[Rfam]
RNA sequence: GGCACAUCGUUUGCUUGGUCCACCGCAACAGGCUGACACCAACGGCGGUGACAGCGCUCAGACAAUGGCGUCGU
Number, nucleotide and partner (000 for none) at each position: 001g000002g000003c000004a000005c000006a000007u000008c000009g000010u000011u000012u000013g000014c000015u000016u000017g000018g000019u000020c000021c000022a000023c000024c000025g000026c000027a000028a000029c000030a000031g000032g000033c000034u053035g052036a000037c050038a049039c048040c047041a000042a000043c000044g000045g000046c000047g040048g039049u038050g037051a000052c035053a034054g000055c000056g000057c000058u000059c000060a000061g000062a000063c000064a000065a000066u000067g000068g000069c000070g000071u000072c000073g000074u000